[Rfam]
RNA sequence: GGUUGCAAGUUUGAGUCCACAGUAGCAGUGUUAAUAGCACAGCCCUGUCAGAUUCCAAUGAAUCUGUGAAUUCUACU
Numbered sequence: 001g002g003u004u005g006c007a008a009g010u011u012u013g014a015g016u017c018c019a020c021a022g023u024a025g026c027a028g029u030g031u032u033a034a035u036a037g038c039a040c041a042g043c044c045c046u047g048u049c050a051g052a053u054u055c056c057a058a059u060g061a062a063u064c065u066g067u068g069a070a071u072u073c074u075a076c077u
Stems, first nucleotide, its partner, number of pairs: 013045001015043001017042001021077005027071001028040003049066007
Rfam assigns this 77-nucleotide RNA sequence from Crocodylus porosus to the family "Mammalian CPEB3 ribozyme". Rfam describes the family as follows. The mammalian CPEB3 ribozyme is a self cleaving RNA located in the second intron of the CPEB3 gene which belongs to a family of genes regulating messenger RNA polyadenylation. The family's consensus secondary structure is taken from published work.